Annotation: The record is a 118-nucleotide sequence from Macleaya cordata, which matches "Small nucleolar RNA Z152/R70/R12/" in Rfam. The family's consensus secondary structure was predicted with PFOLD. It is annotated as a C/D-box small nucleolar RNA.
RNA sequence: GGUGAGAUGAUGCAAAUAUAAGAAGCACACGAGGGUGUGUUAAGAGCAGUGGGAGAGACCUAAAAAAUCUUUGUCGUGAGCCUAAUUACCAAAACGACUUCUCCUUCCACUGAACAUC
Numbered sequence: 001g002g003u004g005a006g007a008u009g010a011u012g013c014a015a016a017u018a019u020a021a022g023a024a025g026c027a028c029a030c031g032a033g034g035g036u037g038u039g040u041u042a043a044g045a046g047c048a049g050u051g052g053g054a055g056a057g058a059c060c061u062a063a064a065a066a067a068u069c070u071u072u073g074u075c076g077u078g079a080g081c082c083u084a085a086u087u088a089c090c091a092a093a094a095c096g097a098c099u100u101c102u103c104c105u106u107c108c109a110c111u112g113a114a115c116a117u118c
Stems, first nucleotide, its partner, number of pairs: 001118004